Group II catalytic intron D1-D4-6: a 216-nucleotide sequence. From the family's description: Group II introns are found in rRNA, tRNA and mRNA of organelles in fungi, plants and protists, and also in mRNA in bacteria. The base pairs follow the family's consensus structure.

[Rfam]
RNA sequence: CGACCCCCGUUCGGUAAAGGCGCAGCCCGCCAGCCGGAAGCGAGUCUUGCACGGACGUCGGUGACGACGUUCGUGAAGCGUAGACAGCGGUCGCUGAAGCCGUGCGUCAGCCUCGAAAUCAUGGUCCUGUCGAAGCCUUCGGUGUGUUGGUCCCGGGGGCAGCACCGGAAAGUCCGUCAUCGGCGAGGACGACCGGUUCGACCGGGUCUCGGACAC
Numbered sequence: 001c002g003a004c005c006c007c008c009g010u011u012c013g014g015u016a017a018a019g020g021c022g023c024a025g026c027c028c029g030c031c032a033g034c035c036g037g038a039a040g041c042g043a044g045u046c047u048u049g050c051a052c053g054g055a056c057g058u059c060g061g062u063g064a065c066g067a068c069g070u071u072c073g074u075g076a077a078g079c080g081u082a083g084a085c086a087g088c089g090g091u092c093g094c095u096g097a098a099g100c101c102g103u104g105c106g107u108c109a110g111c112c113u114c115g116a117a118a119u120c121a122u123g124g125u126c127c128u129g130u131c132g133a134a135g136c137c138u139u140c141g142g143u144g145u146g147u148u149g150g151u152c153c154c155g156g157g158g159g160c161a162g163c164a165c166c167g168g169a170a171a172g173u174c175c176g177u178c179a180u181c182g183g184c185g186a187g188g189a190c191g192a193c194c195g196g197u198u199c200g201a202c203c204g205g206g207u208c209u210c211g212g213a214c215a216c
Stems, first nucleotide, its partner, number of pairs: 012036004019031004025184002040088002044085004048080002050075011110207003114204002129202006135160003140155003165196004172190004